[Rfam]
Notes
A member of the RNA family "c-di-GMP-I riboswitch aptamer" from Paenalicyclobacillus cellulosilyticus, 106 nucleotides long. Taxonomically the source falls in Paenalicyclobacillus (Bacteria, Bacillati, Bacilli, Caryophanales). GEMM was predicted in a large-scale screen for bacterial structured RNA regulatory elements.
Nucleotides: 106
Stems, first nucleotide, its partner, number of pairs: 012037002017032006040100004045096003048091003055085007
Number, partner (000 for none) and nucleotide at each position: 001000g002000a003000u004000a005000c006000u007000g008000a009000a010000g011000g012037g013036c014000a015000a016000a017032c018031c019030a020029g021028u022027g023000g024000a025000a026000a027022c028021g029020c030019u031018g032017g033000g034000a035000c036013g037012c038000a039000a040100a041099g042098c043097c044000a045096c046095g047094g048091g049090u050089c051000u052000a053000c054000a055085g056084a057083c058082g059081a060080a061079c062000a063000c064000c065000g066000g067000c068000u069000g070000g071000u072000u073000c074000g075000c076000c077000g078000c079061g080060u081059u082058c083057g084056u085055c086000c087000a088000u089050g090049a091048u092000c093000g094047c095046c096045g097043g098042g099041u100040u101000g102000c103000c104000g105000c106000c